[Rfam]
RNA sequence: CCGUAUAAGGGGCAAAAUCAUUGAAAAGUGAUGGCGCAAAGCUAUAGGGGCUAACGCAUCUGCUAUGCCAGCCAGCUGCCGGA
Numbered sequence: 001c002c003g004u005a006u007a008a009g010g011g012g013c014a015a016a017a018u019c020a021u022u023g024a025a026a027a028g029u030g031a032u033g034g035c036g037c038a039a040a041g042c043u044a045u046a047g048g049g050g051c052u053a054a055c056g057c058a059u060c061u062g063c064u065a066u067g068c069c070a071g072c073c074a075g076c077u078g079c080c081g082g083a
Base pairs, nucleotide, nucleotide: 012037013036017032018031019030020029021028022027040077041076042075043074047073048072049069050068051067056063057062
Notes
A member of the RNA family "c-di-GMP-I riboswitch aptamer" from Bacillus sp. MUM 13, 83 nucleotides long. The match comes from Rfam's covariance-model search (71 bits). Pairs were carried over by alignment from the consensus structure, which is taken from published work.